[Rfam]
RNA sequence: CAGGGCGGUCAAAGUUGUUGUGAUGUGCUGAAUUGUAUACAUAUCACAGCCAGCUUUGAUGAGCCUUG
Numbered sequence: 001c002a003g004g005g006c007g008g009u010c011a012a013a014g015u016u017g018u019u020g021u022g023a024u025g026u027g028c029u030g031a032a033u034u035g036u037a038u039a040c041a042u043a044u045c046a047c048a049g050c051c052a053g054c055u056u057u058g059a060u061g062a063g064c065c066u067u068g
Base pairs, nucleotide, nucleotide: 006061007060009059010058011057012056013055014054015052017050018049019048020047021046022045023044026043027042
A member of the RNA family "mir-2 microRNA precursor family" from Dreissena polymorpha, 68 nucleotides long. The organism belongs to Dreissena, within Eukaryota. Pairs were carried over by alignment from the consensus structure, which was predicted with PFOLD.